[Rfam]
Description
The family of this 152-nucleotide RNA sequence from Medicago truncatula is "Small nucleolar RNA snoR145". Rfam links the family to the GO terms RNA processing and nucleolus. NCBI's taxonomy places the organism under Eukaryota, Tracheophyta, Mesangiospermae, eudicotyledons, Medicago. On this family, see Chen and Wu, Nucleic Acids Res 2009: "Mining small RNA sequencing data: a new approach to identify small nucleolar RNAs in Arabidopsis".
RNA sequence: AUGCGAAGAUCCCAGCAGGGAGGCAAAUUACUCUUAUUAUUGAGGCCACUCUAACCAUUAAUUUAAUAAUCCUUCGCAUAUUUAAUUGCCGAAUCGUAGGAUGUCCAAAUUUGUUUUGUUUUGGUGCAUCUUGAACCCUCGGCUAUAUCCCA
Dot-bracket structure: ..((((((..(((....))).....(....(((........))).....).....................))))))..........(((((.......((.(((((((..........))))).)).))........))))).........

Rfam 15.1 lists 286 matches to the family in 194 species. Rfam classes the family as an H/ACA-box small nucleolar RNA.